[Rfam]
Nucleotides: 136
Base pairs, nucleotide, nucleotide: 002062003061004060005059006058008056009055011053012052015049016048020047021046022045023044025042026041027040028039029038030037071130072129073128075122076121077120082116083115084114088112089111091108092107093106094105
Number, partner (000 for none) and nucleotide at each position: 001000a002062c003061u004060g005059u006058c007000a008056u009055u010000a011053a012052a013000a014000u015049g016048u017000g018000u019000u020047g021046c022045a023044g024000g025042c026041g027040u028039g029038g030037c031000u032000g033000c034000a035000g036000u037030g038029c039028c040027a041026c042025g043000u044023u045022u046021g047020u048016g049015u050000c051000a052012u053011u054000c055009g056008g057000u058006g059005g060004c061003a062002g063000a064000g065000a066000g067000g068000a069000c070000a071130a072129g073128g074000c075122g076121a077120g078000g079000u080000c081000u082116u083115c084114c085000c086000c087000u088112g089111g090000u091108g092107c093106u094105c095000u096000g097000a098000a099000c100000c101000a102000c103000a104000u105094g106093g107092g108091c109000u110000c111089c112088c113000u114084g115083g116082a117000u118000u119000u120077c121076u122075c123000a124000a125000c126000a127000a128073c129072c130071u131000g132000a133000c134000a135000u136000u
Rfam assigns this 136-nucleotide sequence from Formicarius rufipectus to the family "Small nucleolar RNA SNORA17". Taxonomically the source falls in Formicarius (Eukaryota, Opisthokonta, Gnathostomata, Saurischia). snoRNA ACA 17 belongs to the H/ACA family of snoRNAs and is predicted to guide pseudouridylation of the 28S rRNA at positions U4659 and U4598. It shares the same host gene together with ACA43. NB This family has a high threshold value to exclude a large number of closely related sequences that do not appear to have conserved H and ACA boxes, and may be pseudogenes. It scores 54 bits against the family's covariance model. Pairs were carried over by alignment from the consensus structure, which was predicted with RNAalifold. The literature on the family includes a 1997 paper in J Mol Biol by Ofengand and Bakin, "Mapping to nucleotide resolution of pseudouridine residues in large subunit ribosomal RNAs from representative eukaryotes, prokaryotes, archaebacteria, mitochondria and chloroplasts".